This 303-nucleotide RNA from Alphacoronavirus amsterdamense belongs to the Rfam family "Alphacoronavirus 3'UTR". A search with the family's covariance model found it, with a score of 219 bits. Lineage of the source: Viruses > Orthornavirae > Cornidovirineae > Alphacoronavirus > Alphacoronavirus amsterdamense. About the family: The 3' UTR of alphacoronaviruses consists of two small hairpins (PK-SL2) which can form an alternate conformation (PK-SL1) where the loop region of the second hairpin interacts with the stem of the first hairpin. Rfam classes the family as a cis-regulatory element.

Nucleotides: 303
Base pairs, nucleotide, nucleotide: 095112096111097110098109099108116147117146118145119144120143121142122141123140124139125138126137151287152286153285154284156283161272162271163270168264170262171261172260178253179252180251186247187246188245189244190243192241193240194239195238196237212221222231223230
Number, partner (000 for none) and nucleotide at each position: 001000c002000g003000a004000g005000g006000u007000u008000u009000u010000g011000c012000a013000u014000u015000a016000a017000a018000u019000u020000g021000u022000u023000u024000u025000g026000u027000a028000a029000u030000u031000c032000c033000a034000g035000u036000u037000g038000a039000a040000u041000g042000u043000u044000u045000a046000u047000u048000a049000u050000u051000a052000u053000u054000a055000g056000u057000u058000g059000c060000a061000a062000c063000c064000c065000c066000a067000u068000g069000c070000g071000u072000u073000u074000a075000g076000c077000g078000c079000a080000u081000g082000a083000u084000a085000a086000g087000g088000g089000u090000u091000u092000a093000g094000u095112c096111u097110u098109a099108c100000a101000c102000a103000c104000a105000a106000u107000g108099g109098u110097a111096g112095g113000c114000c115000a116147g117146u118145g119144a120143u121142a122141g123140u124139a125138a126137a127000g128000u129000g130000u131000a132000a133000g134000u135000a136000a137126u138125u139124u140123g141122c142121u143120a144119u145118c146117a147116u148000a149000u150000u151287a152286a153285c154284a155000u156283g157000u158000c159000u160000a161272g162271a163270g164000g165000a166000a167000a168264g169000u170262c171261a172260g173000a174000a175000c176000u177000u178253u179252u180251u181000c182000u183000g184000u185000u186247u187246g188245u189244g190243u191000u192241g193240u194239u195238g196237g197000a198000g199000u200000a201000c202000u203000u204000a205000a206000a207000g208000a209000u210000c211000g212221c213000a214000u215000a216000g217000g218000c219000g220000c221212g222231c223230c224000a225000a226000c227000a228000a229000u230223g231222g232000a233000a234000g235000a236000g237196c238195c239194a240193a241192c242000a243190a244189c245188a246187u247186a248000u249000c250000u251180a252179a253178a254000a255000a256000u257000g258000u259000u260172u261171u262170g263000u264168c265000u266000g267000g268000u269000a270163c271162u272161u273000g274000u275000u276000a277000a278000u279000g280000a281000u282000a283156u284154u285153g286152u287151u288000u289000u290000u291000g292000a293000u294000a295000u296000g297000g298000a299000u300000a301000c302000a303000c